The family of this 154-nucleotide RNA sequence from Rosa chinensis is "small nucleolar RNA snoR135". The base pairs follow the family's consensus structure, which was predicted with RNAalifold. A search with the family's covariance model found it, with a score of 52 bits.

RNA sequence: ACAACAUUGAUUAUGUGUAUGGGUGUAGUGCUAUAAGCAGUGAACAUUAAUCCCAGAGAAUUCAAUGCAAUACUGAUUUGGGGAAGAUGUGUGCAGUUAAUUUAUUUCAUCUUAACCUAUCAAAAAUUGUCAACAAUCAUACAUUCAUUCUUUU
Numbered sequence: 001a002c003a004a005c006a007u008u009g010a011u012u013a014u015g016u017g018u019a020u021g022g023g024u025g026u027a028g029u030g031c032u033a034u035a036a037g038c039a040g041u042g043a044a045c046a047u048u049a050a051u052c053c054c055a056g057a058g059a060a061u062u063c064a065a066u067g068c069a070a071u072a073c074u075g076a077u078u079u080g081g082g083g084a085a086g087a088u089g090u091g092u093g094c095a096g097u098u099a100a101u102u103u104a105u106u107u108c109a110u111c112u113u114a115a116c117c118u119a120u121c122a123a124a125a126a127u128u129g130u131c132a133a134c135a136a137u138c139a140u141a142c143a144u145u146c147a148u149u150c151u152u153u154u
Stems, first nucleotide, its partner, number of pairs: 005067006015045002018042003080148001082146003086142001089140003096134003